Rfam assigns this 122-nucleotide RNA sequence from Arachis duranensis to the family "Small nucleolar RNA U19". The source organism's lineage runs through Eukaryota, Tracheophyta, Spermatophyta, rosids and Arachis. On this family, see Marker et al., Curr Biol 2002: "Experimental RNomics: identification of 140 candidates for small non-messenger RNAs in the plant Arabidopsis thaliana".
RNA sequence: AUGUGGUUUAGUUAGGGGGCAGACAGCAAUUGGAACCCAAUUAACUUUGGAUCCUUUGAGAGAGGCCUUUUGAAGGGACUCUGCAAUCUCAUUGAUUGUUCCUCAAGCAGCCUUUCACAUUU
Dot-bracket structure: ...((.(((......))).))...........((.((...........)).))......(((((((..((((.((((((..(............)..))))))))))..)))))))......